[Rfam]
RNA sequence: CGCCUUUGCCCUUCUGGGCGUUUCCUCCCUAAUGAAACUGCCGCGCUCGACAGCGCGGCAUUUUUUUUGGCUGUG
Numbered sequence: 001c002g003c004c005u006u007u008g009c010c011c012u013u014c015u016g017g018g019c020g021u022u023u024c025c026u027c028c029c030u031a032a033u034g035a036a037a038c039u040g041c042c043g044c045g046c047u048c049g050a051c052a053g054c055g056c057g058g059c060a061u062u063u064u065u066u067u068u069g070g071c072u073g074u075g
Base pairs, nucleotide, nucleotide: 008019009018010017011016039060040059041058042057043056044055045054046053047052
The family of this 75-nucleotide RNA sequence from Phenylobacterium kunshanense is "Makes More Granules Regulator RNA (mmgR)". Rfam classes the family as a small RNA. It scores 53 bits against the family's covariance model. The base pairs follow the family's consensus structure. SuhB later renamed mmgR (makes more granules regulator) was a putative non-coding RNA found multiple times in the Agrobacterium tumefaciens genome and related alpha-proteobacteria. Other non-coding RNAs uncovered in the same analysis include: speF, ybhL, metA, and serC.Several studies inSinorhizobium meliloti showed that suhB element is indeed a non-coding RNA:firstly it was detected on Northern blot and called Sm8RNA, secondly in an RNAseq study referred to as SmelC689.The mutant phenotype's (strain lacking the small RNA) cytoplasm contains higher content of polyhydroxybutyrate (PBH)storage granules than wild type strain. The sRNA is required to limit the PBH intracellular accumulation when the nitrogen-fixing Sinorhizobium meliloti is under condition of surplus carbon in relation to nitrogen. It has been renamed to mmgR. Further study confirmed that mmgR fine-tunes the regulation of PBH storage.Northern blot confirmed the expression of the sRNA in other rhizobia species.